[Rfam]
RNA sequence: UGCCGUAUAAUACGGACUUAUGCAGAAUUGACCCACUGCGUAUUACUUAGAACGUAACUUAAGGAGAAAACAAAUG
Numbered sequence: 001u002g003c004c005g006u007a008u009a010a011u012a013c014g015g016a017c018u019u020a021u022g023c024a025g026a027a028u029u030g031a032c033c034c035a036c037u038g039c040g041u042a043u044u045a046c047u048u049a050g051a052a053c054g055u056a057a058c059u060u061a062a063g064g065a066g067a068a069a070a071c072a073a074a075u076g
Stems, first nucleotide, its partner, number of pairs: 003015004019042007043057004
Rfam assigns this 76-nucleotide RNA sequence to the family "freshwater-2 RNA". It is annotated as a cis-regulatory element.